Shown here is a 213-nucleotide sequence from Methylosinus sporium, a member of the family "Methylosinus-1 RNA".
A search with the family's covariance model found it, with a score of 159 bits.
The family's RNA type in Rfam is small RNA.
RNA sequence: CCGGCGGGUUUCGAGAGAGGCGGGACGGCUACCCUCGUUCACGCGCUCGACGCCACUCCGCCGGCGCGGCUUCUCCUUCGUGCGGAGGCAUUUGGGAACAAAUGCAAAAGCCGGCCGAAUAUCCGAGGUUCGCGCGGGGAUAGACUACCGAAAUGGGAAAACAACCCUGGGCCCGGAGGCGGAGCAGAGGAGGGGCAGAACCGCGUUUCGGGA
Numbered sequence: 001c002c003g004g005c006g007g008g009u010u011u012c013g014a015g016a017g018a019g020g021c022g023g024g025a026c027g028g029c030u031a032c033c034c035u036c037g038u039u040c041a042c043g044c045g046c047u048c049g050a051c052g053c054c055a056c057u058c059c060g061c062c063g064g065c066g067c068g069g070c071u072u073c074u075c076c077u078u079c080g081u082g083c084g085g086a087g088g089c090a091u092u093u094g095g096g097a098a099c100a101a102a103u104g105c106a107a108a109a110g111c112c113g114g115c116c117g118a119a120u121a122u123c124c125g126a127g128g129u130u131c132g133c134g135c136g137g138g139g140a141u142a143g144a145c146u147a148c149c150g151a152a153a154u155g156g157g158a159a160a161a162c163a164a165c166c167c168u169g170g171g172c173c174c175g176g177a178g179g180c181g182g183a184g185c186a187g188a189g190g191a192g193g194g195g196c197a198g199a200a201c202c203g204c205g206u207u208u209c210g211g212g213a
Stems, first nucleotide, its partner, number of pairs: 005205002007202004012049004017044001062117004067113006073087004090103005127173004